[Rfam]
Nucleotides: 078
Base pairs, nucleotide, nucleotide: 001078003076005074006073007072
Number, partner (000 for none) and nucleotide at each position: 001078g002000c003076c004000g005074u006073g007072c008000u009000g010000u011000g012000a013000u014000g015000a016000g017000u018000u019000g020000c021000a022000u023000g024000u025000u026000a027000g028000u029000c030000c031000g032000u033000g034000u035000u036000u037000c038000a039000c040000c041000u042000g043000a044000a045000a046000a047000u048000c049000a050000c051000a052000u053000g054000a055000u056000u057000a058000c059000a060000c061000a062000c063000a064000u065000g066000c067000g068000c069000u070000g071000a072007g073006c074005a075000g076003g077000u078001c